About this RNA
A member of the RNA family "small nucleolar RNA snoR127" from Raphanus sativus, 132 nucleotides long. It scores 139 bits against the family's covariance model. Gene Ontology terms of the family: RNA processing and nucleolus. A reference for the family is Chen and Wu (2009), "Mining small RNA sequencing data: a new approach to identify small nucleolar RNAs in Arabidopsis", Nucleic Acids Res. The source organism's lineage runs through Eukaryota, Tracheophyta, Spermatophyta, Pentapetalae and Raphanus.

RNA sequence: CUGGAGUGAUGAUGCUUAGCCAAAUCAGAUAUGUGCUCCAAGAGGCAUUGUACCCUGUUCAAAAACAUGGCAUGCCUCUUGUUGAAGCGUGUCUUGGACGAUAUCACAGAGAAUGGUUUUUGCCUGACCAGA
Dot-bracket structure: ((((...........................................................................................................................)))).